The family of this 203-nucleotide RNA sequence from Medicago truncatula is "MIR2619 microRNA precursor family".
RNA sequence: AAACAACUCCCCUAUGUAUUGAAUCUUUGGCAGUUUUGGCCCCCAAGGCCACUUUCGACUUAGUCUUGGCUGACGUGGCACCCACAUCCCUUAAGUGAGGUGCCACGUGUCGACCAUUGUGGGUGCCACGUCAACGAAGACUAAGUCAAAAGUGGCAUUGAGAGCCAAAACUGCCAAAGAUUCAAUACAUAGAGGGGCUGUUU
Numbered sequence: 001a002a003a004c005a006a007c008u009c010c011c012c013u014a015u016g017u018a019u020u021g022a023a024u025c026u027u028u029g030g031c032a033g034u035u036u037u038g039g040c041c042c043c044c045a046a047g048g049c050c051a052c053u054u055u056c057g058a059c060u061u062a063g064u065c066u067u068g069g070c071u072g073a074c075g076u077g078g079c080a081c082c083c084a085c086a087u088c089c090c091u092u093a094a095g096u097g098a099g100g101u102g103c104c105a106c107g108u109g110u111c112g113a114c115c116a117u118u119g120u121g122g123g124u125g126c127c128a129c130g131u132c133a134a135c136g137a138a139g140a141c142u143a144a145g146u147c148a149a150a151a152g153u154g155g156c157a158u159u160g161a162g163a164g165c166c167a168a169a170a171c172u173g174c175c176a177a178a179g180a181u182u183c184a185a186u187a188c189a190u191a192g193a194g195g196g197g198c199u200g201u202u203u
Stems, first nucleotide, its partner, number of pairs: 001203002004200002007197001009195001013191028042162001044160003073131002076128011